RNA sequence: AUUGUCAAUGGUAGCCUCGAGUGAGGAAGGAAUUGACAAGUCUUAUUGUU
Numbered sequence: 001a002u003u004g005u006c007a008a009u010g011g012u013a014g015c016c017u018c019g020a021g022u023g024a025g026g027a028a029g030g031a032a033u034u035g036a037c038a039a040g041u042c043u044u045a046u047u048g049u050u
Base pairs, nucleotide, nucleotide: 001041002039003038004037005036006035007034008033009032

Shown here is a 50-nucleotide RNA from Crocuta crocuta, a member of the family "Bacillus-plasmid RNA". A search with the family's covariance model found it, with a score of 32 bits.